Overview
Shown here is a 51-nucleotide RNA sequence, a member of the family "eL15-Euryarchaeota ribosomal protein leader". By type it is a cis-regulatory leader. Rfam's curators put it in the seed alignment. For this family Rfam cites "Discovery of 20 novel ribosomal leader candidates in bacteria and archaea" (Eckert and Weinberg, BMC Microbiol, 2020).

RNA sequence: CCCGAACACCGUUCGGGACGAAAUGUGGCGGUAUAUCCGCUGAAUCGCAAG
Dot-bracket structure: (((((((...))))))).(((.....(((((.....)))))...)))....